A member of the RNA family "Z30 small nucleolar RNA" from Scleropages formosus, 94 nucleotides long. The family's RNA type in Rfam is C/D-box small nucleolar RNA. It scores 59 bits against the family's covariance model. The source organism's lineage runs through Eukaryota, Actinopterygii, Neopterygii, Osteoglossocephalai and Scleropages. The family's consensus secondary structure was predicted with PFOLD.
RNA sequence: UGGCUGUGAUGAGCUGAAGAACUGCCUGACUUGGUAUUGGCAUGUGUUGGCAAUGACCAAGGAGUGAUUGGGUUUUAAUCUUCUCUCUGAGCUG
Dot-bracket structure: ..((..................................(.((.....)).).......................................))..